[Rfam]
The family of this 425-nucleotide RNA sequence from Halonotius sp. J07HN6 is "Archaeal RNase P". Its Rfam clan is "RNaseP clan". Rfam's curators write: Ribonuclease P (RNase P) is a ubiquitous endoribonuclease, found in archaea, bacteria and eukarya as well as chloroplasts and mitochondria. Its best characterised activity is the generation of mature 5'-ends of tRNAs by cleaving the 5'-leader elements of precursor-tRNAs. Cellular RNase Ps are ribonucleoproteins. RNA from bacterial RNase Ps retains its catalytic activity in the absence of the protein subunit, i.e. it is a ribozyme. The source organism's lineage runs through Archaea, Methanobacteriati, Methanobacteriota, Halobacteriales and Halonotius. Rfam classes the family as a ribozyme. The family's consensus secondary structure is taken from published work.
RNA sequence: AUGCGGUGCCGGCCGGCACCCCCAUGAGGAAAGUCCCCCCACCGUUCGGACAGGUGACCGGGCGCAAGCCCGGAGUCGGAGACGGCUGGCACUGAAACAGCAACGAGACCCCCUGCCCCGACCGAUGAGACGUGCGAACCGACCCGUAAGGGAAGGGAGUUAACCCGUCGAGGGCGUGGUGCCACGCACCACGUUACUGCGAGCGGCGAAGCCGCGAGCACUGCGAUGGCAACGCCAUCGAAACGCGGGCAUCGCCCGCGCGACGGGCAGGAACGGAUGGAACGGUGAAUCCUCACCGGUGCAAGGUCGCGUCAGGCGGUCGGUCGGCCACGCCGCGUGGUCGGCUUGCCGCCGAGGUAGUCCGAACACGACGCGGCUGCUCAGCCGAAUGUCGGGCCGAACAGAAGGGGGCUUACUCCUCUCAA
Numbered sequence: 001a002u003g004c005g006g007u008g009c010c011g012g013c014c015g016g017c018a019c020c021c022c023c024a025u026g027a028g029g030a031a032a033g034u035c036c037c038c039c040c041a042c043c044g045u046u047c048g049g050a051c052a053g054g055u056g057a058c059c060g061g062g063c064g065c066a067a068g069c070c071c072g073g074a075g076u077c078g079g080a081g082a083c084g085g086c087u088g089g090c091a092c093u094g095a096a097a098c099a100g101c102a103a104c105g106a107g108a109c110c111c112c113c114u115g116c117c118c119c120g121a122c123c124g125a126u127g128a129g130a131c132g133u134g135c136g137a138a139c140c141g142a143c144c145c146g147u148a149a150g151g152g153a154a155g156g157g158a159g160u161u162a163a164c165c166c167g168u169c170g171a172g173g174g175c176g177u178g179g180u181g182c183c184a185c186g187c188a189c190c191a192c193g194u195u196a197c198u199g200c201g202a203g204c205g206g207c208g209a210a211g212c213c214g215c216g217a218g219c220a221c222u223g224c225g226a227u228g229g230c231a232a233c234g235c236c237a238u239c240g241a242a243a244c245g246c247g248g249g250c251a252u253c254g255c256c257c258g259c260g261c262g263a264c265g266g267g268c269a270g271g272a273a274c275g276g277a278u279g280g281a282a283c284g285g286u287g288a289a290u291c292c293u294c295a296c297c298g299g300u301g302c303a304a305g306g307u308c309g310c311g312u313c314a315g316g317c318g319g320u321c322g323g324u325c326g327g328c329c330a331c332g333c334c335g336c337g338u339g340g341u342c343g344g345c346u347u348g349c350c351g352c353c354g355a356g357g358u359a360g361u362c363c364g365a366a367c368a369c370g371a372c373g374c375g376g377c378u379g380c381u382c383a384g385c386c387g388a389a390u391g392u393c394g395g396g397c398c399g400a401a402c403a404g405a406a407g408g409g410g411g412c413u414u415a416c417u418c419c420u421c422u423c424a425a
Stems, first nucleotide, its partner, number of pairs: 002424002005421002008416001009395005017026002031414003035411005040301004053297005058073005074087005088292002093288001095286001109276002112271007305378009